[Rfam]
Nucleotides: 372
Stems, first nucleotide, its partner, number of pairs: 002367009011357001012326007020047002023044005052355003056352005061228004068258003073224005078092005093118001094116009119219002124217002126213002141160002143156005168186006187208001188206001190205006232283004242274005249263005290309002293306005
Number, partner (000 for none) and nucleotide at each position: 001000c002367g003366g004365g005364c006363g007362g008361g009360u010359c011357g012326a013325a014324c015323g016322g017321u018320c019000g020047c021046c022000g023044g024043c025042c026041c027040a028000u029000u030000g031000c032000u033000u034000g035000u036000g037000c038000a039000u040027u041026g042025g043024g044023c045000g046021g047020g048000a049000g050000g051000a052355a053354a054353g055000u056352c057351c058350g059349a060348a061228c062227u063226c064225c065000a066000c067000a068258g069257g070256g071000c072000a073224g074223u075222g076221u077220g078092c079091c080090c081089c082088g083000u084000a085000a086000c087000g088082c089081g090080g091079g092078g093118g094116g095115c096114u097113c098112a099111u100110g101109g102108a103000c104000a105000u106000u107000c108102u109101c110100c111099a112098u113097g114096g115095g116094u117000a118093c119219g120218g121000a122000a123000a124217g125216u126213g127212c128000a129000a130000c131000a132000g133000a134000a135000a136000a137000u138000a139000u140000a141160c142159c143156g144155c145154c146153c147152c148000g149000c150000a151000a152147g153146g154145g155144g156143u157000a158000a159142g160141g161000g162000u163000g164000a165000a166000a167000u168186g169185g170184u171183g172182c173181g174000g175000u176000a177000a178000g179000a180000g181173c182172g183171c184170a185169c186168c187208g188206g189000g190205u191204g192203c193202u194201c195200g196000g197000u198000a199000a200195c201194g202193a203192g204191c205190a206188u207000g208187c209000c210000u211000g212127g213126c214000a215000a216125a217124c218120c219119c220077c221076a222075c223074a224073u225064g226063g227062a228061g229000c230000a231000a232283g233282u234281u235280c236000a237000a238000a239000u240000a241000g242274g243273g244272a245271u246270g247000g248000a249263g250262g251261c252260g253259u254000g255000a256070c257069c258068c259253g260252c261251g262250c263249c264000g265000c266000u267000u268000g269000a270246c271245a272244u273243c274242c275000g276000g277000g278000u279000a280235g281234a282233a283232u284000g285000c286000u287000g288000g289000a290309u291308c292000c293306g294305g295304g296303a297302g298000g299000c300000a301000a302297c303296u304295c305294c306293c307000a308291g309290g310000c311000u312000a313000g314000a315000g316000g317000a318000a319000u320018g321017a322016c323015c324014g325013u326012u327000g328000c329000c330000c331000u332000c333000u334000g335000c336000g337000a338000g339000g340000g341000a342000a343000c344000a345000g346000a347000a348060u349059u350058c351057g352056g353054c354053u355052u356000a357011c358000a359010g360009a361008c362007c363006u364005g365004c366003c367002c368000a369000u370000c371000a372000c
The record is a 372-nucleotide RNA, which matches "Bacterial RNase P class A" in Rfam.
From the family's description: Ribonuclease P (RNase P) is a ubiquitous endoribonuclease, found in archaea, bacteria and eukarya as well as chloroplasts and mitochondria.
Rfam classes the family as a ribozyme.
A search with the family's covariance model found it, with a score of 281 bits.
Gene Ontology terms of the family: ribonuclease P activity, tRNA processing and dimeric ribonuclease P complex.